[Rfam]
RNA sequence: GCGCAACAUCCCCGCCGGUUGGGCGCAUUGCACUCCGCGCAGUGAACCGGCUGCGCC
Numbered sequence: 001g002c003g004c005a006a007c008a009u010c011c012c013c014g015c016c017g018g019u020u021g022g023g024c025g026c027a028u029u030g031c032a033c034u035c036c037g038c039g040c041a042g043u044g045a046a047c048c049g050g051c052u053g054c055g056c057c
Base pairs, nucleotide, nucleotide: 001057003054004053005052011044012042014051015050016049017048018047019046020045021043023040024039025038026037